Rfam assigns this 62-nucleotide RNA sequence from Homo sapiens to the family "U7 small nuclear RNA".
It scores 65 bits against the family's covariance model.
The literature on the family includes a 1994 paper in Nucleic Acids Res by Spycher et al., "3' end processing of mouse histone pre-mRNA: evidence for additional base-pairing between U7 snRNA and pre-mRNA".

RNA sequence: GCCAGUUACAGCUCUUUUAGAAUUUGUCGAGCAGGCUUUCCAGUUUUUGUUGGAAAGCCCCC
Numbered sequence: 001g002c003c004a005g006u007u008a009c010a011g012c013u014c015u016u017u018u019a020g021a022a023u024u025u026g027u028c029g030a031g032c033a034g035g036c037u038u039u040c041c042a043g044u045u046u047u048u049g050u051u052g053g054a055a056a057g058c059c060c061c062c
Stems, first nucleotide, its partner, number of pairs: 034059011